[Rfam]
RNA: U11 spliceosomal RNA
Organism: Phtheirospermum japonicum
RNA sequence: UAAAAGGGUCGGUUGGCUAAAUAUGCCACGCUAGUCUCUGUUUGGCUAGUGCUGUAUGGCAAUCAAGACAUAUGGACGACAUAAUUUGUGGAAUUCCAAAGGGUUGGCUUGCUUGGCCGACCCUCCA
Numbered sequence: 001u002a003a004a005a006g007g008g009u010c011g012g013u014u015g016g017c018u019a020a021a022u023a024u025g026c027c028a029c030g031c032u033a034g035u036c037u038c039u040g041u042u043u044g045g046c047u048a049g050u051g052c053u054g055u056a057u058g059g060c061a062a063u064c065a066a067g068a069c070a071u072a073u074g075g076a077c078g079a080c081a082u083a084a085u086u087u088g089u090g091g092a093a094u095u096c097c098a099a100a101g102g103g104u105u106g107g108c109u110u111g112c113u114u115g116g117c118c119g120a121c122c123c124u125c126c127a
Stems, first nucleotide, its partner, number of pairs: 008080004014028004029051008052075007099124001101122001103121007